[Rfam]
RNA sequence: GGGCGCACGGUGGAUGCCUUGGCACCAGGAGCCGAUGAAGGACGUGGGAGGCUGCGAUAUGCCUCGGGGAGCUGUCAACCGAGCUGUGAUCCGAGGAUUUCCGAAUGGGGAAACCCGGCAGGGCUUUAAAUCCUGUCACCCGUGCCUGAACACAUAGGGCAUGUGGAGGGAACGUGGGGAAGUGAAACAUCUCAUUACCCACAGGAAGAGAAAACAACCGUGAUUCCGCGAGUAGUGGUGAGCGAAAGCGGAUGAGGCUAAACCAGUUUCGUGUGAUAGCCGGCAGGCGUUGCGUGGCUGGGGUUGUGGGACUGUUCGGGCAGGGCUGCCGUCCUGUCGAGGAGUAAGAAAGCGUGUUGUUAGCCGAAGGUCAUGCGAAUGGACCGCCAUAGAGGGUAACAGCCCUGUAGGUGAAAACGGCACGUCUCCUGAACAGUUUCCCAAGUAGCACGGAGCCCGUGAAAUUCCGUGUGAAUCUGGCGGGACCACCCGCUAAGCCUAAAUACUCCCUGGUGACCGAUAGCGGACUAGUACCGUGAGGGAAAGGUGAAAAGUACCCCGGGAGGGGAGUGAAAUAGUACCUGAAACCGUGUGCCUACA
Numbered sequence: 001g002g003g004c005g006c007a008c009g010g011u012g013g014a015u016g017c018c019u020u021g022g023c024a025c026c027a028g029g030a031g032c033c034g035a036u037g038a039a040g041g042a043c044g045u046g047g048g049a050g051g052c053u054g055c056g057a058u059a060u061g062c063c064u065c066g067g068g069g070a071g072c073u074g075u076c077a078a079c080c081g082a083g084c085u086g087u088g089a090u091c092c093g094a095g096g097a098u099u100u101c102c103g104a105a106u107g108g109g110g111a112a113a114c115c116c117g118g119c120a121g122g123g124c125u126u127u128a129a130a131u132c133c134u135g136u137c138a139c140c141c142g143u144g145c146c147u148g149a150a151c152a153c154a155u156a157g158g159g160c161a162u163g164u165g166g167a168g169g170g171a172a173c174g175u176g177g178g179g180a181a182g183u184g185a186a187a188c189a190u191c192u193c194a195u196u197a198c199c200c201a202c203a204g205g206a207a208g209a210g211a212a213a214a215c216a217a218c219c220g221u222g223a224u225u226c227c228g229c230g231a232g233u234a235g236u237g238g239u240g241a242g243c244g245a246a247a248g249c250g251g252a253u254g255a256g257g258c259u260a261a262a263c264c265a266g267u268u269u270c271g272u273g274u275g276a277u278a279g280c281c282g283g284c285a286g287g288c289g290u291u292g293c294g295u296g297g298c299u300g301g302g303g304u305u306g307u308g309g310g311a312c313u314g315u316u317c318g319g320g321c322a323g324g325g326c327u328g329c330c331g332u333c334c335u336g337u338c339g340a341g342g343a344g345u346a347a348g349a350a351a352g353c354g355u356g357u358u359g360u361u362a363g364c365c366g367a368a369g370g371u372c373a374u375g376c377g378a379a380u381g382g383a384c385c386g387c388c389a390u391a392g393a394g395g396g397u398a399a400c401a402g403c404c405c406u407g408u409a410g411g412u413g414a415a416a417a418c419g420g421c422a423c424g425u426c427u428c429c430u431g432a433a434c435a436g437u438u439u440c441c442c443a444a445g446u447a448g449c450a451c452g453g454a455g456c457c458c459g460u461g462a463a464a465u466u467c468c469g470u471g472u473g474a475a476u477c478u479g480g481c482g483g484g485a486c487c488a489c490c491c492g493c494u495a496a497g498c499c500u501a502a503a504u505a506c507u508c509c510c511u512g513g514u515g516a517c518c519g520a521u522a523g524c525g526g527a528c529u530a531g532u533a534c535c536g537u538g539a540g541g542g543a544a545a546g547g548u549g550a551a552a553a554g555u556a557c558c559c560c561g562g563g564a565g566g567g568g569a570g571u572g573a574a575a576u577a578g579u580a581c582c583u584g585a586a587a588c589c590g591u592g593u594g595c596c597u598a599c600a
Stems, first nucleotide, its partner, number of pairs: 001597010016582001017547002021518002023515007030507002032169002040102003043056003062096007071084003107116003117137007139166002141163007173204001174202005184191002214221002224503001225252005235243002255500004263301006308442003312436005350427001352425010363412003369385004388392001394406003448472008479494005534541002557568004